The record is a 200-nucleotide RNA from Aegilops tauschii, which matches "MIR1435 microRNA precursor family" in Rfam.

[Rfam]
RNA sequence: AUCAUUUGUCCUAAGUCAAAGUUUUAUAAUUUUGACCAAAUUUUUAGAAAAGAGUAGUAGUAUAUAUGACAUCAAAAUGGUAUAUUAUGAAAAUACAUUUCAAAACGAAUCUAGUGAUACUAAUUUAGUGCCAUAAAUGCUGCUACUUUUUCCUAUAAAGUUGGUCAAAGUUUCAAAACUUUGACUUAGGACAAAAGCUA
Numbered sequence: 001a002u003c004a005u006u007u008g009u010c011c012u013a014a015g016u017c018a019a020a021g022u023u024u025u026a027u028a029a030u031u032u033u034g035a036c037c038a039a040a041u042u043u044u045u046a047g048a049a050a051a052g053a054g055u056a057g058u059a060g061u062a063u064a065u066a067u068g069a070c071a072u073c074a075a076a077a078u079g080g081u082a083u084a085u086u087a088u089g090a091a092a093a094u095a096c097a098u099u100u101c102a103a104a105a106c107g108a109a110u111c112u113a114g115u116g117a118u119a120c121u122a123a124u125u126u127a128g129u130g131c132c133a134u135a136a137a138u139g140c141u142g143c144u145a146c147u148u149u150u151u152c153c154u155a156u157a158a159a160g161u162u163g164g165u166c167a168a169a170g171u172u173u174c175a176a177a178a179c180u181u182u183g184a185c186u187u188a189g190g191a192c193a194a195a196a197g198c199u200a
Stems, first nucleotide, its partner, number of pairs: 005195005011189015031169005045155003049151004055145003059141005065135004072128001074126003

Annotation:
Rfam 15.1 lists 1,765 matches to the family in 31 species.